RNA sequence: GAGUAUAGCGGCUAGGGUUCCGGCAUCAUCCGAUGUGUCUGGUCCGAGAGCUGCGGCUGGCGGGAGAGACAUCCCCACCAGAUGCACGGCGGGACAAAAACCCGGGAGAC
Numbered sequence: 001g002a003g004u005a006u007a008g009c010g011g012c013u014a015g016g017g018u019u020c021c022g023g024c025a026u027c028a029u030c031c032g033a034u035g036u037g038u039c040u041g042g043u044c045c046g047a048g049a050g051c052u053g054c055g056g057c058u059g060g061c062g063g064g065a066g067a068g069a070c071a072u073c074c075c076c077a078c079c080a081g082a083u084g085c086a087c088g089g090c091g092g093g094a095c096a097a098a099a100a101c102c103c104g105g106g107a108g109a110c
Stems, first nucleotide, its partner, number of pairs: 008054005015045002020042002022039001023036005056083001057081004062076002085105001087108001091103003
Shown here is a 110-nucleotide RNA sequence from Gemmobacter aquatilis, a member of the family "Guanidine-I riboswitch aptamer".
Pairs were carried over by alignment from the consensus structure.
This family represents a conserved RNA structure found upstream of the ykkC and yxkD genes in Bacillus subtilis and related genes in other bacteria. The function of this family is unclear although it has been suggested that it may function to switch on efflux pumps and detoxification systems in response to harmful environmental molecules.
The match comes from Rfam's covariance-model search (75 bits).